[Rfam]
RNA sequence: AACAGUGGCAUUCCUACUACAAACCUGUUUGCACAAGGAGCGGUCGGCGUCAGUCGCACCCUGCUCAGAAAUACAGGUGGGAAAUUCGGUGAAACGCGGCGGAGCAACUAUUUCCGAGGGCCGUUCUCGGUCCUGAUUUCCGUGAGGAAAGCGUUUGGAAUUUAAACGCUUGGACGUUGUCAUCAGAAAUACACCAGUCUCUUGGCUGGAUGGGAAGGCAGCGGAUGCUCCGUUUGACUGUGUUUAGCUUCGGCGACACAGGUCUGUUGAGUGCAAUCGUAGGACACUUCUUAUGAGGUGAACCCGAUACCGAUUAUUGCCGGUGUU
Numbered sequence: 001a002a003c004a005g006u007g008g009c010a011u012u013c014c015u016a017c018u019a020c021a022a023a024c025c026u027g028u029u030u031g032c033a034c035a036a037g038g039a040g041c042g043g044u045c046g047g048c049g050u051c052a053g054u055c056g057c058a059c060c061c062u063g064c065u066c067a068g069a070a071a072u073a074c075a076g077g078u079g080g081g082a083a084a085u086u087c088g089g090u091g092a093a094a095c096g097c098g099g100c101g102g103a104g105c106a107a108c109u110a111u112u113u114c115c116g117a118g119g120g121c122c123g124u125u126c127u128c129g130g131u132c133c134u135g136a137u138u139u140c141c142g143u144g145a146g147g148a149a150a151g152c153g154u155u156u157g158g159a160a161u162u163u164a165a166a167c168g169c170u171u172g173g174a175c176g177u178u179g180u181c182a183u184c185a186g187a188a189a190u191a192c193a194c195c196a197g198u199c200u201c202u203u204g205g206c207u208g209g210a211u212g213g214g215a216a217g218g219c220a221g222c223g224g225a226u227g228c229u230c231c232g233u234u235u236g237a238c239u240g241u242g243u244u245u246a247g248c249u250u251c252g253g254c255g256a257c258a259c260a261g262g263u264c265u266g267u268u269g270a271g272u273g274c275a276a277u278c279g280u281a282g283g284a285c286a287c288u289u290c291u292u293a294u295g296a297g298g299u300g301a302a303c304c305c306g307a308u309a310c311c312g313a314u315u316a317u318u319g320c321c322g323g324u325g326u327u
Stems, first nucleotide, its partner, number of pairs: 001327004007321003012284006023078005038059001040057004087312005103229004137150005151169006175223007194209003285300006
Rfam assigns this 327-nucleotide RNA sequence from Lachancea kluyveri to the family "Nuclear RNase P". Gene Ontology terms of the family: ribonuclease P complex, tRNA processing and ribonuclease P activity. Pairs were carried over by alignment from the consensus structure, which is taken from published work. Rfam's curators put it in the seed alignment. Ribonuclease P (RNase P) is a ubiquitous endoribonuclease, found in archaea, bacteria and eukarya as well as chloroplasts and mitochondria. The literature on the family includes a 1998 paper in Annu Rev Biochem by Frank and Pace, "Ribonuclease P: unity and diversity in a tRNA processing ribozyme". The source organism's lineage runs through Eukaryota, saccharomyceta, Saccharomycetales, Saccharomycetaceae and Lachancea.